[Rfam]
RNA: Group I catalytic intron
Organism: Yasminevirus saudimassiliense
RNA sequence: AAAUUCAGAUGCUAGUCUUUUAGUUUGUGCAUAACUAAAAGGCGAGAUACCUUGUUGCGGGAAACCCCUUAGAGUCUAAUCUACUACUUGUACCGUGGAAACUACGUACAACACCCGGGGUAAUGACCUAGGGCACAGUAAAAACGAUUAGAAUUGGGCAAUCCGCAGUGUCACGAUCUAAAUCCGACAAAACGACAGGACAUGAUCGGCAUUCAACGACUGAACGGGUAUCGGUGGACAGUGAUGGUCUAGUCAACCAGAGUCUGCUUAAGAUACAGUCUAGUCCCAUAUGAAAGUAUGGG
Numbered sequence: 001a002a003a004u005u006c007a008g009a010u011g012c013u014a015g016u017c018u019u020u021u022a023g024u025u026u027g028u029g030c031a032u033a034a035c036u037a038a039a040a041g042g043c044g045a046g047a048u049a050c051c052u053u054g055u056u057g058c059g060g061g062a063a064a065c066c067c068c069u070u071a072g073a074g075u076c077u078a079a080u081c082u083a084c085u086a087c088u089u090g091u092a093c094c095g096u097g098g099a100a101a102c103u104a105c106g107u108a109c110a111a112c113a114c115c116c117g118g119g120g121u122a123a124u125g126a127c128c129u130a131g132g133g134c135a136c137a138g139u140a141a142a143a144a145c146g147a148u149u150a151g152a153a154u155u156g157g158g159c160a161a162u163c164c165g166c167a168g169u170g171u172c173a174c175g176a177u178c179u180a181a182a183u184c185c186g187a188c189a190a191a192a193c194g195a196c197a198g199g200a201c202a203u204g205a206u207c208g209g210c211a212u213u214c215a216a217c218g219a220c221u222g223a224a225c226g227g228g229u230a231u232c233g234g235u236g237g238a239c240a241g242u243g244a245u246g247g248u249c250u251a252g253u254c255a256a257c258c259a260g261a262g263u264c265u266g267c268u269u270a271a272g273a274u275a276c277a278g279u280c281u282a283g284u285c286c287c288a289u290a291u292g293a294a295a296g297u298a299u300g301g302g
Stems, first nucleotide, its partner, number of pairs: 001020003046232005052226001056167006066158003168212002175207004183200003216281001218280005234267006242259001287300005